[Rfam]
Shown here is a 60-nucleotide RNA from Ictalurus punctatus, a member of the family "mir-1 microRNA precursor family". Rfam links the family to the GO terms RISC complex and miRNA-mediated post-transcriptional gene silencing. NCBI's taxonomy places the organism under Eukaryota, Craniata, Teleostomi, Siluriformes, Ictalurus. Rfam describes the family as follows. This family represents the microRNA (miRNA) mir-1 family. miRNAs are transcribed as ~70nt precursors (modelled here) and subsequently processed by the Dicer enzyme to give a ~22nt product. In this case the mature sequence comes from the 3' arm of the precursor. The extents of the hairpin precursors are not generally known and are estimated based on hairpin prediction. The products are thought to have regulatory roles through complementarity to mRNA. The involvement of Dicer in miRNA processing suggests a relationship with the phenomenon of RNA interference. miRNAs are numbered based on the sequence of the mature RNA. This family also contains the mir-206 from human, which appears to be related to mir-1. The family has 137 seed sequences and 4,474 matches in Rfam 15.1.
RNA sequence: ACAUGCUUCCUUAUAUGCCCAUAUUAAUGCUCAAGUUAUGGAAUGUAAGGAAGUGUGUGG
Numbered sequence: 001a002c003a004u005g006c007u008u009c010c011u012u013a014u015a016u017g018c019c020c021a022u023a024u025u026a027a028u029g030c031u032c033a034a035g036u037u038a039u040g041g042a043a044u045g046u047a048a049g050g051a052a053g054u055g056u057g058u059g060g
Stems, first nucleotide, its partner, number of pairs: 001058016019041005